[Rfam]
The record is a 262-nucleotide RNA sequence from Paramaledivibacter caminithermalis, which matches "T-box leader" in Rfam. The source organism's lineage runs through Bacteria, Peptostreptococcales, Caminicellaceae, Paramaledivibacter and Paramaledivibacter caminithermalis. The family's RNA type in Rfam is cis-regulatory leader. Gene Ontology term of the family: tRNA binding.
RNA sequence: AAAAUAGCUAUGAAGGAUAGUAGUAAAUAAUAUCUUGUUUAAGGAUAUUUAAAACGAAGGGUUGUAGCUGUAAUUUGUUUUUGAUAUCCGUUACAGAGAGUCGGUGGAUGGUGGGAACCGAUAGCAAGAGUUAUUGAAUCCGAUCCCAAGCUGUAUAGGGGUAAAAACCUAUACCGGUAAUUAUCGUUACAUUGCUUAAAGGCUGUAUUUAUAUGCAGUAAAACAAGGUGGUACCACGUGGAUAUAUUUCCCCGUCCUUGAC
Numbered sequence: 001a002a003a004a005u006a007g008c009u010a011u012g013a014a015g016g017a018u019a020g021u022a023g024u025a026a027a028u029a030a031u032a033u034c035u036u037g038u039u040u041a042a043g044g045a046u047a048u049u050u051a052a053a054a055c056g057a058a059g060g061g062u063u064g065u066a067g068c069u070g071u072a073a074u075u076u077g078u079u080u081u082u083g084a085u086a087u088c089c090g091u092u093a094c095a096g097a098g099a100g101u102c103g104g105u106g107g108a109u110g111g112u113g114g115g116a117a118c119c120g121a122u123a124g125c126a127a128g129a130g131u132u133a134u135u136g137a138a139u140c141c142g143a144u145c146c147c148a149a150g151c152u153g154u155a156u157a158g159g160g161g162u163a164a165a166a167a168c169c170u171a172u173a174c175c176g177g178u179a180a181u182u183a184u185c186g187u188u189a190c191a192u193u194g195c196u197u198a199a200a201g202g203c204u205g206u207a208u209u210u211a212u213a214u215g216c217a218g219u220a221a222a223a224c225a226a227g228g229u230g231g232u233a234c235c236a237c238g239u240g241g242a243u244a245u246a247u248u249u250c251c252c253c254g255u256c257c258u259u260g261a262c
Stems, first nucleotide, its partner, number of pairs: 007151002015146004026135006037125003100122006154173006175186003203218006225259004236255003240251003